[Rfam]
RNA: mir-393 microRNA precursor family
Organism: Microthlaspi erraticum
RNA sequence: AGAGAAAGGAUCCAAAGGGAUCGCAUUGAUCCUAAUUAAGCCGCAUUAUUUCUUCAAUAGUUUUUUUUUCUCAAUCGAAAGAUGGAAAAAAAAACUCCCCCAAAAGUUUGCUUCAUUUUCCGGAUCAUGCGAUCUCUUUGGAUUCAUCCUU
Dot-bracket structure: .(((.(.((((((((((((((.((((.(((((.....(((............................................................................)))..))))))))).)))))))))))))).).)))
Numbered sequence: 001a002g003a004g005a006a007a008g009g010a011u012c013c014a015a016a017g018g019g020a021u022c023g024c025a026u027u028g029a030u031c032c033u034a035a036u037u038a039a040g041c042c043g044c045a046u047u048a049u050u051u052c053u054u055c056a057a058u059a060g061u062u063u064u065u066u067u068u069u070c071u072c073a074a075u076c077g078a079a080a081g082a083u084g085g086a087a088a089a090a091a092a093a094a095c096u097c098c099c100c101c102a103a104a105a106g107u108u109u110g111c112u113u114c115a116u117u118u119u120c121c122g123g124a125u126c127a128u129g130c131g132a133u134c135u136c137u138u139u140g141g142a143u144u145c146a147u148c149c150u151u
Stems, first nucleotide, its partner, number of pairs: 002151003006147001008145014023130004028126005038119003